RNA sequence: GCCCAGCCCCGACAGAAGCGGCAUCCUCCGCGGCGCCUGCUUUUGCGGCGCGGAGAUACAGCGUAUGGCGGGACCAAGC
Numbered sequence: 001g002c003c004c005a006g007c008c009c010c011g012a013c014a015g016a017a018g019c020g021g022c023a024u025c026c027u028c029c030g031c032g033g034c035g036c037c038u039g040c041u042u043u044u045g046c047g048g049c050g051c052g053g054a055g056a057u058a059c060a061g062c063g064u065a066u067g068g069c070g071g072g073a074c075c076a077a078g079c
Stems, first nucleotide, its partner, number of pairs: 009071003013067002018062002023057003028053005034047003
A member of the RNA family "Flavo-1 RNA" from Flavobacterium cyanobacteriorum, 79 nucleotides long. Rfam classes the family as a small RNA. The family's consensus secondary structure is taken from published work. The organism belongs to Flavobacterium, within Bacteria.